[Rfam]
RNA sequence: CCGGUAACAACAUCCUGGUGCUGAUUGAGUAGUUCUGAUAAUAACUCCAGCAUCAGUGAUUUUGUUGCCUG
Numbered sequence: 001c002c003g004g005u006a007a008c009a010a011c012a013u014c015c016u017g018g019u020g021c022u023g024a025u026u027g028a029g030u031a032g033u034u035c036u037g038a039u040a041a042u043a044a045c046u047c048c049a050g051c052a053u054c055a056g057u058g059a060u061u062u063u064g065u066u067g068c069c070u071g
Stems, first nucleotide, its partner, number of pairs: 006066005012060003015056009
Dot-bracket structure: .....(((((.((((((((((((........................))))))))).))).))))).....

Annotation: The family of this 71-nucleotide sequence from Muraenolepis orangiensis is "mir-338 microRNA precursor family". A reference for the family is Chen et al. (2005), "The developmental miRNA profiles of zebrafish as determined by small RNA cloning", Genes Dev. The organism belongs to Muraenolepis, within Eukaryota. Rfam 15.1 lists 1,231 matches to the family in 632 species. The base pairs follow the family's consensus structure, which was predicted with RNAalifold.